RNA sequence: UGACUUUUUCCAAAGUUAAACUUCUUUAAGUAUGACUAAGUUUAUAGAGAAAAAUAACAACACUUUCAACAUAAAACAAAUACAAUAUCAAAAUAUUGUAUUUAAUGAAACUAGUUUUGUGUUGUAAAUAUUGUUACAUUUUUCUAUAAACUUGGUCAAAAUUAAAGAAGUUUGACUUUGAAGAAAAAGUC
Numbered sequence: 001u002g003a004c005u006u007u008u009u010c011c012a013a014a015g016u017u018a019a020a021c022u023u024c025u026u027u028a029a030g031u032a033u034g035a036c037u038a039a040g041u042u043u044a045u046a047g048a049g050a051a052a053a054a055u056a057a058c059a060a061c062a063c064u065u066u067c068a069a070c071a072u073a074a075a076a077c078a079a080a081u082a083c084a085a086u087a088u089c090a091a092a093a094u095a096u097u098g099u100a101u102u103u104a105a106u107g108a109a110a111c112u113a114g115u116u117u118u119g120u121g122u123u124g125u126a127a128a129u130a131u132u133g134u135u136a137c138a139u140u141u142u143u144c145u146a147u148a149a150a151c152u153u154g155g156u157c158a159a160a161a162u163u164a165a166a167g168a169a170g171u172u173u174g175a176c177u178u179u180g181a182a183g184a185a186a187a188a189g190u191c
Stems, first nucleotide, its partner, number of pairs: 005186005011180016031160001033158003045146008055136003059132002062129001064127002067124002072119006
RNA: MIR1435 microRNA precursor family
Organism: Oryza sativa